[Rfam]
RNA sequence: GCCGAGCAGGUAGCGACUGCUUGUAACCCGAGCGGGGGCAACAAGGUGGUGUGGAUGUCAAUCGUGGCGCUUGGACCUGGGCCUGGUGUUGCAUUCUGCGGCCCGCCCGUUCCAAGUUGCGUAGUGGGCCGUGGGCGCUUUGGCGAAGGCUUUGGCGUCCCGGUACCUAGAGUGGUGGGCAUUGCGUGAGGCUGGCCUUACAGAGCAGCGAAUACCACCCGCUUCCAACGGUGGGAGGAUAACAGGCCGCUGCACUCCUGGCCCGCUUAGGCCCAUGCGCCUUCUCUGGCAAACCACCAUUUUU
Numbered sequence: 001g002c003c004g005a006g007c008a009g010g011u012a013g014c015g016a017c018u019g020c021u022u023g024u025a026a027c028c029c030g031a032g033c034g035g036g037g038g039c040a041a042c043a044a045g046g047u048g049g050u051g052u053g054g055a056u057g058u059c060a061a062u063c064g065u066g067g068c069g070c071u072u073g074g075a076c077c078u079g080g081g082c083c084u085g086g087u088g089u090u091g092c093a094u095u096c097u098g099c100g101g102c103c104c105g106c107c108c109g110u111u112c113c114a115a116g117u118u119g120c121g122u123a124g125u126g127g128g129c130c131g132u133g134g135g136c137g138c139u140u141u142g143g144c145g146a147a148g149g150c151u152u153u154g155g156c157g158u159c160c161c162g163g164u165a166c167c168u169a170g171a172g173u174g175g176u177g178g179g180c181a182u183u184g185c186g187u188g189a190g191g192c193u194g195g196c197c198u199u200a201c202a203g204a205g206c207a208g209c210g211a212a213u214a215c216c217a218c219c220c221g222c223u224u225c226c227a228a229c230g231g232u233g234g235g236a237g238g239a240u241a242a243c244a245g246g247c248c249g250c251u252g253c254a255c256u257c258c259u260g261g262c263c264c265g266c267u268u269a270g271g272c273c274c275a276u277g278c279g280c281c282u283u284c285u286c287u288g289g290c291a292a293a294c295c296a297c298c299a300u301u302u303u304u
Base pairs, nucleotide, nucleotide: 001039002038003037004022005021006020007019008018009017027036028035029034043303044302045301046300047299048298049297050296051295053294056291057290058289059288060287061285064282066280068279069278070277072275073274074273076271077270079264080263081262082261083260085258086257088255089254092252093251098250099249100248101247102246103245105243107238108237110236111235112234113233114232116229117228118227119226121225123223124222125221126166128164129163130162131161133160134159135158136157137156138155139154142151143150144149167172174219175218176217177216178215183212185210186209187208192203193202194201
A member of the RNA family "Plant signal recognition particle RNA" from Miscanthus lutarioriparius, 304 nucleotides long. Clan: SRP clan. The base pairs follow the family's consensus structure, which is taken from published work. A reference for the family is Regalia et al. (2002), "Prediction of signal recognition particle RNA genes", Nucleic Acids Res. It is annotated as a non-coding RNA gene. The family has 63 seed sequences and 4,988 matches in Rfam 15.1. The organism belongs to Miscanthus, within Eukaryota.